Shown here is a 54-nucleotide sequence from Coregonus sp. 'balchen', a member of the family "UnaL2 LINE 3' element". A search with the family's covariance model found it, with a score of 63 bits. Pairs were carried over by alignment from the consensus structure, which is taken from published work. From the family's description: The eel long interspersed element (LINE) UnaL2 and its partner short interspersed element (SINE) share a conserved 3' tail containing a stem-loop that is critical for their retrotransposition. Presumably, the first step of retrotransposition is the recognition of their 3' tails by UnaL2-encoded reverse transcriptase. Rfam links the family to the GO term transposition, RNA-mediated.
[Rfam]
RNA sequence: GUGUAUGGCUUCUGUAAGUCGCUCUGGAUAAGAGCGUCUGCUAAAUGACUAAAA
Numbered sequence: 001g002u003g004u005a006u007g008g009c010u011u012c013u014g015u016a017a018g019u020c021g022c023u024c025u026g027g028a029u030a031a032g033a034g035c036g037u038c039u040g041c042u043a044a045a046u047g048a049c050u051a052a053a054a
Stems, first nucleotide, its partner, number of pairs: 013043001014041003020036006